A member of the RNA family "Bacterial RNase P class A" from Minwuia thermotolerans, 385 nucleotides long. The match comes from Rfam's covariance-model search (298 bits).

[Rfam]
RNA sequence: UCAGGCGGCCGGAUGGCCGCGGCGGGCUCCGGCCUGUCGAGGAAAGUCCGGGCUCCACGGAAACACGGUGCCGGGUAACGCCCGGCGGGGGCGACCCCAGGGAAAGUGCCACAGAGAGCAGACCGCCGGCCUUCGGACCGGCAAGGGUGAAAGGGUGCGGUAAGAGCGCACCGCGGCGCUGGCGACAGCGCCGGCAUGGUAAACCCCACCGGGAGCAAGAUCGAAUAGGGACGGCCGGCCCGGCAAGCGGGCAGAAGCGUUUCCGCUUCGCCGUCCGGGUAGAUUGCAAGAGGCGCCGGGCGACCGGCGUCCCAGAUGAAUGGCCAUCCAGCCCCGGAUCUCGGUCCGGGGCGGACAGAACCCGGCUUACAGGCCGCCUGACGCC
Dot-bracket structure: ((((((((((((((((((.((((((((....))))))))....[[[.[[[[[((((.....[[..((((((((((.....)))))(((((....)))).)((...(((((............(((((((.(....).)))))..)).......((((((.......))))))(((((((((....)))))))).)..)))..)))))))))))))...((((......((((((...................(((((..]]..))))).)))))).....))))......((((((((....))))))))..........)))))))................................]]]]]]]].).))))))))))....
Numbered sequence: 001u002c003a004g005g006c007g008g009c010c011g012g013a014u015g016g017c018c019g020c021g022g023c024g025g026g027c028u029c030c031g032g033c034c035u036g037u038c039g040a041g042g043a044a045a046g047u048c049c050g051g052g053c054u055c056c057a058c059g060g061a062a063a064c065a066c067g068g069u070g071c072c073g074g075g076u077a078a079c080g081c082c083c084g085g086c087g088g089g090g091g092c093g094a095c096c097c098c099a100g101g102g103a104a105a106g107u108g109c110c111a112c113a114g115a116g117a118g119c120a121g122a123c124c125g126c127c128g129g130c131c132u133u134c135g136g137a138c139c140g141g142c143a144a145g146g147g148u149g150a151a152a153g154g155g156u157g158c159g160g161u162a163a164g165a166g167c168g169c170a171c172c173g174c175g176g177c178g179c180u181g182g183c184g185a186c187a188g189c190g191c192c193g194g195c196a197u198g199g200u201a202a203a204c205c206c207c208a209c210c211g212g213g214a215g216c217a218a219g220a221u222c223g224a225a226u227a228g229g230g231a232c233g234g235c236c237g238g239c240c241c242g243g244c245a246a247g248c249g250g251g252c253a254g255a256a257g258c259g260u261u262u263c264c265g266c267u268u269c270g271c272c273g274u275c276c277g278g279g280u281a282g283a284u285u286g287c288a289a290g291a292g293g294c295g296c297c298g299g300g301c302g303a304c305c306g307g308c309g310u311c312c313c314a315g316a317u318g319a320a321u322g323g324c325c326a327u328c329c330a331g332c333c334c335c336g337g338a339u340c341u342c343g344g345u346c347c348g349g350g351g352c353g354g355a356c357a358g359a360a361c362c363c364g365g366c367u368u369a370c371a372g373g374c375c376g377c378c379u380g381a382c383g384c385c
Stems, first nucleotide, its partner, number of pairs: 001381010011370001012328007020039008044368003048365005053215004062262002066211005071085005086100001087098004101206002106204002108200003123146002125142005131136001154172006173195001174193008219285004229276006254269005292311008